The record is a 79-nucleotide RNA sequence from Loktanella fryxellensis, which matches "Singlet oxygen resistance RNA X" in Rfam. The base pairs follow the family's consensus structure. For this family Rfam cites "Regulation of a polyamine transporter by the conserved 3' UTR-derived sRNA SorX confers resistance to singlet oxygen and organic hydroperoxides in Rhodobacter sphaeroides" (Peng et al., RNA Biol, 2016). The match comes from Rfam's covariance-model search (47 bits). From the family's description: SorX (RSs2461)like SorY is a singlet oxygen induced sRNA that counteracts oxidative stress by targeting mRNA for a transporter in Rhodobacter. It also has an impact on resistance against organic hydroperoxides.

RNA sequence: AACCUGAAGCGGCGUGGCGAUUGUCUCCCGCUUCACCUCCCUGUUGGACUGCGCCGGGCCUUUGUGCCCGGCUUUUUUU
Dot-bracket structure: .....(((((((...............)))))))..................(((((((......))))))).......